The record is a 75-nucleotide sequence from Salvia splendens, which matches "small nucleolar RNA snoR117" in Rfam.
For this family Rfam cites "Mining small RNA sequencing data: a new approach to identify small nucleolar RNAs in Arabidopsis" (Chen and Wu, Nucleic Acids Res, 2009).
The organism belongs to core Calosphace, within Eukaryota.
RNA sequence: GGCCGGUGAUGAACGGAGAAUUGUCCGUACCAUCUGAUUUCCUUGAUGUAUUAAUCUCGAAUAUUUCUGAGGCCU
Numbered sequence: 001g002g003c004c005g006g007u008g009a010u011g012a013a014c015g016g017a018g019a020a021u022u023g024u025c026c027g028u029a030c031c032a033u034c035u036g037a038u039u040u041c042c043u044u045g046a047u048g049u050a051u052u053a054a055u056c057u058c059g060a061a062u063a064u065u066u067c068u069g070a071g072g073c074c075u
Stems, first nucleotide, its partner, number of pairs: 001074004

Its family is annotated with RNA processing and nucleolus in the Gene Ontology.